[Rfam]
RNA sequence: GGAGGAAGCUCUGGAGAAUCCCGAAAGGGUGCCGAAGGUGUAAGGCGAAAGCCGAAUCUCUCAGGCCAAAGGACAGAGGAAGCAUA
Dot-bracket structure: ........(((((......(((....))).(((((..(.(...((......))....).))).))).......)))))........
Notes:
Shown here is an 86-nucleotide sequence from Firmicutes bacterium CAG:555, a member of the family "Glycine riboswitch aptamer". From the family's description: This family represents the bacterial glycine riboswitch. Glycine riboswitches usually consist of two metabolite-binding aptamers domains with similar structures in tandem. Rfam links the family to the GO term glycine biosynthetic process. NCBI's taxonomy places the organism under Bacteria, Bacillati, Bacillota.